[Rfam]
RNA sequence: CCCCCCGUAGGGAGAGAAGACCUCGUGGAGCUUUACUGCAGCCCGGUGUAUGCUCCCGGCCCUUGCUACAUAGCGUAGGCGGGACCCUGUGAUGAUAGGCCUCCGGGUCUAUCGGAGGGGACAAUGAAACACCGCCUAGCAAGGGCCGGGAGCAUUACCCCGGGGAAUCCCGGGGGACAGCACCGGGUGGGCAGUUCGGCUGGGGCGGCACGCCCGCGAAAAGAUAACACGGGCGCCCAAAGGUCGGCUCAGGCGGGUCAGAACUCCGCCGUAGAGUGCAAGGGCAAAAGCCGGCCUGACCGGACCCUUGACAGUAAGGGGUCCGGCCGGGAAACCGCGGCCUAGCGAACGCUCGUGCCCCCCUCGGUGGGGGCCGGGCAUGACAGAAAAGUUACCCCGAGGAUAACAGGGUCGUCGCGGGCGAGAGCCCACAUCGACCCCGCGGUUUGCUACAUCGACGUCGGCUCUUCCCAUCCUGGGGGUGCAGCAGCCCCCAAGGGUGGGGCUGCCCGCCCAUUAAAGGGGAACGUGAGCUGGGUUUAGACCGUCGUGAGACAGGUCGGACUCUACCCACGGGGGGUGCG
Numbered sequence: 001c002c003c004c005c006c007g008u009a010g011g012g013a014g015a016g017a018a019g020a021c022c023u024c025g026u027g028g029a030g031c032u033u034u035a036c037u038g039c040a041g042c043c044c045g046g047u048g049u050a051u052g053c054u055c056c057c058g059g060c061c062c063u064u065g066c067u068a069c070a071u072a073g074c075g076u077a078g079g080c081g082g083g084a085c086c087c088u089g090u091g092a093u094g095a096u097a098g099g100c101c102u103c104c105g106g107g108u109c110u111a112u113c114g115g116a117g118g119g120g121a122c123a124a125u126g127a128a129a130c131a132c133c134g135c136c137u138a139g140c141a142a143g144g145g146c147c148g149g150g151a152g153c154a155u156u157a158c159c160c161c162g163g164g165g166a167a168u169c170c171c172g173g174g175g176g177a178c179a180g181c182a183c184c185g186g187g188u189g190g191g192c193a194g195u196u197c198g199g200c201u202g203g204g205g206c207g208g209c210a211c212g213c214c215c216g217c218g219a220a221a222a223g224a225u226a227a228c229a230c231g232g233g234c235g236c237c238c239a240a241a242g243g244u245c246g247g248c249u250c251a252g253g254c255g256g257g258u259c260a261g262a263a264c265u266c267c268g269c270c271g272u273a274g275a276g277u278g279c280a281a282g283g284g285c286a287a288a289a290g291c292c293g294g295c296c297u298g299a300c301c302g303g304a305c306c307c308u309u310g311a312c313a314g315u316a317a318g319g320g321g322u323c324c325g326g327c328c329g330g331g332a333a334a335c336c337g338c339g340g341c342c343u344a345g346c347g348a349a350c351g352c353u354c355g356u357g358c359c360c361c362c363c364u365c366g367g368u369g370g371g372g373g374c375c376g377g378g379c380a381u382g383a384c385a386g387a388a389a390a391g392u393u394a395c396c397c398c399g400a401g402g403a404u405a406a407c408a409g410g411g412u413c414g415u416c417g418c419g420g421g422c423g424a425g426a427g428c429c430c431a432c433a434u435c436g437a438c439c440c441c442g443c444g445g446u447u448u449g450c451u452a453c454a455u456c457g458a459c460g461u462c463g464g465c466u467c468u469u470c471c472c473a474u475c476c477u478g479g480g481g482g483u484g485c486a487g488c489a490g491c492c493c494c495c496a497a498g499g500g501u502g503g504g505g506c507u508g509c510c511c512g513c514c515c516a517u518u519a520a521a522g523g524g525g526a527a528c529g530u531g532a533g534c535u536g537g538g539u540u541u542a543g544a545c546c547g548u549c550g551u552g553a554g555a556c557a558g559g560u561c562g563g564a565c566u567c568u569a570c571c572c573a574c575g576g577g578g579g580g581u582g583c584g
Base pairs, nucleotide, nucleotide: 001580002579003578004577005576006575007574008573010572011571012570014567015566022401023400024399025398027397028396029393030392031391032390033389035195036194037193038192042187043186044185045184046183047182048181051154052153053152054151055150056149057148058147059146060145061144062143063142064141065140066139067138068137078136079135080134081133082132085119086118087117097110098109099108100107101106158175159174160173161172162171163170198211199209200208201207212234213233214232215231216230237340238339243295244294245293246292247291248290249275250274252270253269254268255267256266257265276285277284300326301325302324303323304322305321306320307319308318328337330335351379352378353377354376355375357374359373360372361371362370410451411450412449414448415445416444417443418442419441420440421439425435426434462537463535464534465533466532467529468526469525470524471523472522475500476499479494480493481492482491483490503515504514505513506512543561544560545559546558547556548555549554
RNA: Archaeal large subunit ribosomal RNA, nucleotides 2204 to 2787
Organism: Ignisphaera aggregans